[Rfam]
RNA sequence: AAGCUAUGAGAUAAAAACACGAUUCGGUUGGUAGUCCGAAUGCAGAUGCUAAUCUGUCAGUAACCUGCCCUCCUGGGGUUGUCCAUUCUCUUUAAAAAGCAA
Numbered sequence: 001a002a003g004c005u006a007u008g009a010g011a012u013a014a015a016a017a018c019a020c021g022a023u024u025c026g027g028u029u030g031g032u033a034g035u036c037c038g039a040a041u042g043c044a045g046a047u048g049c050u051a052a053u054c055u056g057u058c059a060g061u062a063a064c065c066u067g068c069c070c071u072c073c074u075g076g077g078g079u080u081g082u083c084c085a086u087u088c089u090c091u092u093u094a095a096a097a098a099g100c101a102a
Stems, first nucleotide, its partner, number of pairs: 006092001008090004022041006042057006067079004
Shown here is a 102-nucleotide RNA from Geosporobacter ferrireducens, a member of the family "azaaromatic riboswitch aptamer (yjdF RNA)". A search with the family's covariance model found it, with a score of 90 bits. The base pairs follow the family's consensus structure, which is taken from published work.